[Rfam]
RNA sequence: UGGGUUGGCCGGGCGAUCGCGUCGGUGCGGCUGCCGGCAACAGCCGGUCGGCUGCCCGCCGAGGAAAGUCCGGGCUCCGCAGAGCAGAGUGGUGGGUAACGCCCACUCGGGGUAACCCGCAGGCCAGUGCCACAGAAAACAGACCGCCAGGAUUGCCUUCAGGGCAGGACCUGGUAAGGGUGAAACGGUGGUGUAAGAGACCACCAGCGCCCCGGGUGACCGGGGCGGCUCGGUAAACCCCACUCGGAGCAAGGCCAGACAGGGCGCGUUCGAGGGCUGCUCGCCCGAGCGUCCGGGUAGGCCGCUUGAGGGUGCCGGCAACGGUACUCCUAGAUGGAUGAUCGCUACCCUGCGGCGGGCAACUGCCGCAGGUGACAGAACCCGGCUCACAGGCCAGCCCAUCCC
Numbered sequence: 001u002g003g004g005u006u007g008g009c010c011g012g013g014c015g016a017u018c019g020c021g022u023c024g025g026u027g028c029g030g031c032u033g034c035c036g037g038c039a040a041c042a043g044c045c046g047g048u049c050g051g052c053u054g055c056c057c058g059c060c061g062a063g064g065a066a067a068g069u070c071c072g073g074g075c076u077c078c079g080c081a082g083a084g085c086a087g088a089g090u091g092g093u094g095g096g097u098a099a100c101g102c103c104c105a106c107u108c109g110g111g112g113u114a115a116c117c118c119g120c121a122g123g124c125c126a127g128u129g130c131c132a133c134a135g136a137a138a139a140c141a142g143a144c145c146g147c148c149a150g151g152a153u154u155g156c157c158u159u160c161a162g163g164g165c166a167g168g169a170c171c172u173g174g175u176a177a178g179g180g181u182g183a184a185a186c187g188g189u190g191g192u193g194u195a196a197g198a199g200a201c202c203a204c205c206a207g208c209g210c211c212c213c214g215g216g217u218g219a220c221c222g223g224g225g226c227g228g229c230u231c232g233g234u235a236a237a238c239c240c241c242a243c244u245c246g247g248a249g250c251a252a253g254g255c256c257a258g259a260c261a262g263g264g265c266g267c268g269u270u271c272g273a274g275g276g277c278u279g280c281u282c283g284c285c286c287g288a289g290c291g292u293c294c295g296g297g298u299a300g301g302c303c304g305c306u307u308g309a310g311g312g313u314g315c316c317g318g319c320a321a322c323g324g325u326a327c328u329c330c331u332a333g334a335u336g337g338a339u340g341a342u343c344g345c346u347a348c349c350c351u352g353c354g355g356c357g358g359g360c361a362a363c364u365g366c367c368g369c370a371g372g373u374g375a376c377a378g379a380a381c382c383c384g385g386c387u388c389a390c391a392g393g394c395c396a397g398c399c400c401a402u403c404c405c
Stems, first nucleotide, its partner, number of pairs: 001401010011390001012346007020061002023058003067387002070385005075249004082282004087245005092106005107121001108119004122240002127238002129234003144179002146175006153168002187205006207229001208227008253303004262294006274286004310329008
Dot-bracket structure: ((((((((((((((((((.((.(((..............................))).)).....[[.[[[[[((((...[[[[.((((((((((.....)))))(((((....)))).)((...(((((............((((((((.((............)).))))))..)).......((((((.......)))))).(((((((((....)))))))).)..)))..)))))))))))))...((((.....((((((......((((.]]]]))))..)))))).....))))......((((((((....))))))))..........)))))))..................................]]]]]]]..).))))))))))....
RNA: Bacterial RNase P class A
Organism: Arthrobacter mobilis